[Rfam]
RNA sequence: GGCUGGCCGCAAGGUAGUGGGUUAUCUCGAUUGAUUGUUCAUAGUCAGUUACAGAUGUGAUUCCUUUUCUAUUCCUUCCUUCUUUCUCCCUACUGCACUUGACUAGUCUUAA
Numbered sequence: 001g002g003c004u005g006g007c008c009g010c011a012a013g014g015u016a017g018u019g020g021g022u023u024a025u026c027u028c029g030a031u032u033g034a035u036u037g038u039u040c041a042u043a044g045u046c047a048g049u050u051a052c053a054g055a056u057g058u059g060a061u062u063c064c065u066u067u068u069c070u071a072u073u074c075c076u077u078c079c080u081u082c083u084u085u086c087u088c089c090c091u092a093c094u095g096c097a098c099u100u101g102a103c104u105a106g107u108c109u110u111a112a
Stems, first nucleotide, its partner, number of pairs: 001108006008101001011099001014096002016091002019088003044073001047070002
The family of this 112-nucleotide RNA sequence from Saimiri boliviensis is "Y RNA".